[Rfam]
RNA sequence: AAAUUCUUAGGUUUGGUCUUGAGGCAAGAACUGGGUAGUUGGUGAACUCGCUAUAUGUAGUUCGUUAACUCGCUACAUGAUUCUUGUUACAAGACCGGGUAUGUGAAGAU
Numbered sequence: 001a002a003a004u005u006c007u008u009a010g011g012u013u014u015g016g017u018c019u020u021g022a023g024g025c026a027a028g029a030a031c032u033g034g035g036u037a038g039u040u041g042g043u044g045a046a047c048u049c050g051c052u053a054u055a056u057g058u059a060g061u062u063c064g065u066u067a068a069c070u071c072g073c074u075a076c077a078u079g080a081u082u083c084u085u086g087u088u089a090c091a092a093g094a095c096c097g098g099g100u101a102u103g104u105g106a107a108g109a110u
Stems, first nucleotide, its partner, number of pairs: 001110001004107003008103002011100002014097008023088008032079002035076002

Notes
This 110-nucleotide RNA sequence from Oryza punctata belongs to the Rfam family "MIR1861 microRNA precursor family". The family's consensus secondary structure was predicted with RNAalifold. Gene Ontology terms of the family: RISC complex and miRNA-mediated post-transcriptional gene silencing.